[Rfam]
RNA sequence: UGCUAGGCUUGACCGGGACGUUCGGCACGCCCUUAUACACCGUAAACUGUCGAUAACGGGGGUGACAACGGAGGACGGCGUAACCUGAGAGAAACGAGCCCAGCCUUCGACAAUGAAGUCUUGUCCUAUGGAGUUGGAAGCUGUCUGCGGGGGCAGUUGGAGAGCGGCCCCCCUUACACUGAUCAUGGGGAACGGGCCAGGCCCUGACGGGAGCAGCCUUACCAUGGAUUACUAACGUUCAGGGGGUUGCAGGGCUGAGAAGAAGGUUGGAUCACUCGCAACGAUUGGGGCAUCAACCUUCGCGGCCUAGCG
Numbered sequence: 001u002g003c004u005a006g007g008c009u010u011g012a013c014c015g016g017g018a019c020g021u022u023c024g025g026c027a028c029g030c031c032c033u034u035a036u037a038c039a040c041c042g043u044a045a046a047c048u049g050u051c052g053a054u055a056a057c058g059g060g061g062g063u064g065a066c067a068a069c070g071g072a073g074g075a076c077g078g079c080g081u082a083a084c085c086u087g088a089g090a091g092a093a094a095c096g097a098g099c100c101c102a103g104c105c106u107u108c109g110a111c112a113a114u115g116a117a118g119u120c121u122u123g124u125c126c127u128a129u130g131g132a133g134u135u136g137g138a139a140g141c142u143g144u145c146u147g148c149g150g151g152g153g154c155a156g157u158u159g160g161a162g163a164g165c166g167g168c169c170c171c172c173c174u175u176a177c178a179c180u181g182a183u184c185a186u187g188g189g190g191a192a193c194g195g196g197c198c199a200g201g202c203c204c205u206g207a208c209g210g211g212a213g214c215a216g217c218c219u220u221a222c223c224a225u226g227g228a229u230u231a232c233u234a235a236c237g238u239u240c241a242g243g244g245g246g247u248u249g250c251a252g253g254g255c256u257g258a259g260a261a262g263a264a265g266g267u268u269g270g271a272u273c274a275c276u277c278g279c280a281a282c283g284a285u286u287g288g289g290g291c292a293u294c295a296a297c298c299u300u301c302g303c304g305g306c307c308u309a310g311c312g
Stems, first nucleotide, its partner, number of pairs: 001312009010065001012063003015033003019029003038060001040059004069302006077294002080291002084287001087286002091282001095278004100270009111259001117256008125245003129241004133236005138230002140180001142178003147173001149172006156165003183227006194219004202211003
This 312-nucleotide sequence from Candidatus Methanomassiliicoccus intestinalis belongs to the Rfam family "Archaeal signal recognition particle RNA". Its family is annotated with signal recognition particle, plasma membrane targeting and SRP-dependent cotranslational protein targeting to membrane, signal sequence recognition in the Gene Ontology. Taxonomically the source falls in Candidatus Methanomassiliicoccus intestinalis (Archaea, Thermoplasmata, Methanomassiliicoccaceae, Methanomassiliicoccus). A reference for the family is Wild et al. (2002), "Towards the structure of the mammalian signal recognition particle", Curr Opin Struct Biol.